[Rfam]
RNA: Rhodo-rpoB RNA
RNA sequence: UGGUCGUGUGGCCGCCGGCGGGACGGCGGCCCGGAUUGACCAGGAUCUACCCGUUCUCAUAGGCCCCGCGCGCCGUAUCCCCGGCGGUGCGCGCG
Numbered sequence: 001u002g003g004u005c006g007u008g009u010g011g012c013c014g015c016c017g018g019c020g021g022g023a024c025g026g027c028g029g030c031c032c033g034g035a036u037u038g039a040c041c042a043g044g045a046u047c048u049a050c051c052c053g054u055u056c057u058c059a060u061a062g063g064c065c066c067c068g069c070g071c072g073c074c075g076u077a078u079c080c081c082c083g084g085c086g087g088u089g090c091g092c093g094c095g
Base pairs, nucleotide, nucleotide: 001042002041003040004039005038010031011030012029013028014027015026016025017024065095067093068092069091071089072088073087074086075085